[Rfam]
RNA sequence: GGCCGGGUGGCGCGCAGCUAUACAAGACCCGAAAGGGAAAAUCUGCGGGCGGCCCUGUGACCGUGUUCAAGCGCCCGGCCGCCUCCUA
Dot-bracket structure: (((((((((...((((..(........(((....)))...)..)))).((((........)))).......)))))))))........
The family of this 88-nucleotide sequence from Nitrosococcus halophilus is "sRNA-Xcc1". It is annotated as a small RNA. The family has 74 seed sequences and 421 matches in Rfam 15.1. The organism belongs to Nitrosococcus halophilus, within Bacteria.